[Rfam]
mir-9193 microRNA precursor family: a 74-nucleotide sequence from Myotis brandtii. Gene Ontology terms of the family: RISC complex and miRNA-mediated post-transcriptional gene silencing.

RNA sequence: GGGGGGGGGGGGGGGUUCCUCAGCCCAGAUUGCAGGAGGGUGCAGGCCAGGCUGAGGGACCCCACUAGUGCACG
Numbered sequence: 001g002g003g004g005g006g007g008g009g010g011g012g013g014g015g016u017u018c019c020u021c022a023g024c025c026c027a028g029a030u031u032g033c034a035g036g037a038g039g040g041u042g043c044a045g046g047c048c049a050g051g052c053u054g055a056g057g058g059a060c061c062c063c064a065c066u067a068g069u070g071c072a073c074g
Base pairs, nucleotide, nucleotide: 004071006069009066010065012063013062014061015060016059017058018057019056020055021054022053023052024051025050028047030045031044032043033042034041